[Rfam]
RNA sequence: UCUAUGGCACAUGAUGACUAAAACUUUUUUCCCCAACUGAUCGACAAUGCUGAUCAGGAACAUUUAAGCCAAAACUUGUCUGAUUUCCAUCAGA
Numbered sequence: 001u002c003u004a005u006g007g008c009a010c011a012u013g014a015u016g017a018c019u020a021a022a023a024c025u026u027u028u029u030u031c032c033c034c035a036a037c038u039g040a041u042c043g044a045c046a047a048u049g050c051u052g053a054u055c056a057g058g059a060a061c062a063u064u065u066a067a068g069c070c071a072a073a074a075c076u077u078g079u080c081u082g083a084u085u086u087c088c089a090u091c092a093g094a
Stems, first nucleotide, its partner, number of pairs: 001094003004090004009085001
Shown here is a 94-nucleotide RNA sequence from Sarcophilus harrisii, a member of the family "Small nucleolar SNORD12/SNORD106". For this family Rfam cites "RNomics: an experimental approach that identifies 201 candidates for novel, small, non-messenger RNAs in mouse" (Huttenhofer et al., EMBO J, 2001). Its Rfam clan is "SNORD12 clan". It scores 54 bits against the family's covariance model. Gene Ontology terms of the family: nucleolus and RNA processing. Rfam 15.1 lists 2,264 matches to the family in 650 species.